[Rfam]
Nucleotides: 046
Stems, first nucleotide, its partner, number of pairs: 001020008033045005
Number, partner (000 for none) and nucleotide at each position: 001020c002019c003018a004017a005016g006015g007014g008013u009000u010000g011000g012000c013008a014007c015006c016005c017004u018003u019002g020001g021000c022000u023000a024000a025000g026000a027000u028000a029000u030000g031000c032000c033045g034044c035043c036042c037041c038000g039000u040000u041037g042036g043035g044034g045033c046000u

Rfam assigns this 46-nucleotide sequence from Cyclonatronum proteinivorum to the family "Acido-Lenti-1 RNA". Rfam 15.1 lists 2,607 matches to the family in 171 species. It scores 49 bits against the family's covariance model. The family's consensus secondary structure is taken from published work. Rfam classes the family as a small RNA. Lineage of the source: Bacteria > Pseudomonadati > Balneolia > Cyclonatronaceae > Cyclonatronum.